[Rfam]
RNA sequence: GUAUAUCUUCGGGAUGGGGUGUAAUUCCCCGCCGGUGGUAAAUAGCCUGAGUAAGCUGUAAGCCCACGAGCCGUAAGGCAGAUUUGGUGAGAUUCCAAAGCCGACAGUGACAGUCUGGAUGUGAGAAGAUAAAU
Numbered sequence: 001g002u003a004u005a006u007c008u009u010c011g012g013g014a015u016g017g018g019g020u021g022u023a024a025u026u027c028c029c030c031g032c033c034g035g036u037g038g039u040a041a042a043u044a045g046c047c048u049g050a051g052u053a054a055g056c057u058g059u060a061a062g063c064c065c066a067c068g069a070g071c072c073g074u075a076a077g078g079c080a081g082a083u084u085u086g087g088u089g090a091g092a093u094u095c096c097a098a099a100g101c102c103g104a105c106a107g108u109g110a111c112a113g114u115c116u117g118g119a120u121g122u123g124a125g126a127a128g129a130u131a132a133a134u
Stems, first nucleotide, its partner, number of pairs: 004131007017029003031114002033103002035067004062101002070079003083099005105117003
RNA: FMN riboswitch aptamer (RFN element)